[Rfam]
RNA sequence: UAUUAUGCUUUGGUUUUGAAUAAAGUUCAUUAAAUACAUCUGUUCUUAUCAGUUUAAUAUCUGAUACGUCCCCUAUCAGGGGACCACAUAUUAAACGGAUUUUAGGAACAGGGAGUCGGAGAAGGAGCUUGCUCCGUCCGCUCCACGCAUCGGCCCAGCCCUGCAGAACUGCUAGGAACGGUGCACUGAUC
Numbered sequence: 001u002a003u004u005a006u007g008c009u010u011u012g013g014u015u016u017u018g019a020a021u022a023a024a025g026u027u028c029a030u031u032a033a034a035u036a037c038a039u040c041u042g043u044u045c046u047u048a049u050c051a052g053u054u055u056a057a058u059a060u061c062u063g064a065u066a067c068g069u070c071c072c073c074u075a076u077c078a079g080g081g082g083a084c085c086a087c088a089u090a091u092u093a094a095a096c097g098g099a100u101u102u103u104a105g106g107a108a109c110a111g112g113g114a115g116u117c118g119g120a121g122a123a124g125g126a127g128c129u130u131g132c133u134c135c136g137u138c139c140g141c142u143c144c145a146c147g148c149a150u151c152g153g154c155c156c157a158g159c160c161c162u163g164c165a166g167a168a169c170u171g172c173u174a175g176g177a178a179c180g181g182u183g184c185a186c187u188g189a190u191c
Base pairs, nucleotide, nucleotide: 007026008025009024011022012021014019047066048065049064050063051062052061068084069083070082071081072080073079074078112144113143114142115141116140118138119137124135125134126133127132147184148183149182150181151180152179154176155175157173158172159171
Overview:
The record is a 191-nucleotide sequence from Synaphobranchus kaupii, which matches "U2 spliceosomal RNA" in Rfam. It is annotated as a spliceosomal small nuclear RNA. The organism belongs to Synaphobranchus, within Eukaryota. From the family's description: U2 is a small nuclear RNA (snRNA) component of the spliceosome (involved in pre-mRNA splicing). Complementary binding between U2 snRNA (in an area lying towards the 5' end but 3' to hairpin I) and the branchpoint sequence (BPS) of the intron results the bulging out of an unpaired adenosine, on the BPS, which initiates a nucleophilic attack at the intronic 5' splice site, thus starting the first of two transesterification reactions that mediate splicing.